[Rfam]
RNA sequence: CGGGCUGGCCGGGCGACCGCGUGGAGGCAACUCCCCGAGGAAGGUCCGGGCUCCACAGGGCAAGGUGGUGGGUAACACCCACCCGGGGCAACCUGCGGGACAGUGCCACAGAAAACAGACCGCCUCCCAGCGCUCCGCGCCGGGCGGUAAGGAUGAAACGGCGGUGUAAGAGACCACCAGCGGUCGGGGCGACCCGGCCGGCUAGGCAAACCCCACCUGGAGCAAGAUCAAGAAGUUCGGAGCCCCCAGGCCCCGAACGCGCGUACGUCCGAGGGCUGCCCGCCCGAGUACGCGGGUAGAUCGCUGGAGGCGGCCGGCAACGGUCGUCGUAGAUGGAUGGUCGCCACGCUUCGGCGUACAGAACCCGGCCUACAGGCCAGCCCGUCGC
Numbered sequence: 001c002g003g004g005c006u007g008g009c010c011g012g013g014c015g016a017c018c019g020c021g022u023g024g025a026g027g028c029a030a031c032u033c034c035c036c037g038a039g040g041a042a043g044g045u046c047c048g049g050g051c052u053c054c055a056c057a058g059g060g061c062a063a064g065g066u067g068g069u070g071g072g073u074a075a076c077a078c079c080c081a082c083c084c085g086g087g088g089c090a091a092c093c094u095g096c097g098g099g100a101c102a103g104u105g106c107c108a109c110a111g112a113a114a115a116c117a118g119a120c121c122g123c124c125u126c127c128c129a130g131c132g133c134u135c136c137g138c139g140c141c142g143g144g145c146g147g148u149a150a151g152g153a154u155g156a157a158a159c160g161g162c163g164g165u166g167u168a169a170g171a172g173a174c175c176a177c178c179a180g181c182g183g184u185c186g187g188g189g190c191g192a193c194c195c196g197g198c199c200g201g202c203u204a205g206g207c208a209a210a211c212c213c214c215a216c217c218u219g220g221a222g223c224a225a226g227a228u229c230a231a232g233a234a235g236u237u238c239g240g241a242g243c244c245c246c247c248a249g250g251c252c253c254c255g256a257a258c259g260c261g262c263g264u265a266c267g268u269c270c271g272a273g274g275g276c277u278g279c280c281c282g283c284c285c286g287a288g289u290a291c292g293c294g295g296g297u298a299g300a301u302c303g304c305u306g307g308a309g310g311c312g313g314c315c316g317g318c319a320a321c322g323g324u325c326g327u328c329g330u331a332g333a334u335g336g337a338u339g340g341u342c343g344c345c346a347c348g349c350u351u352c353g354g355c356g357u358a359c360a361g362a363a364c365c366c367g368g369c370c371u372a373c374a375g376g377c378c379a380g381c382c383c384g385u386c387g388c
Stems, first nucleotide, its partner, number of pairs: 001384010011373001012345007020037002023034004042371003046368005051222004058281004063218005068082005083097001084095004098213002103211002105207003120152002122148003126144003130140003160178002163175003180202001181200008226302004261293006273285004309328008
RNA: Bacterial RNase P class A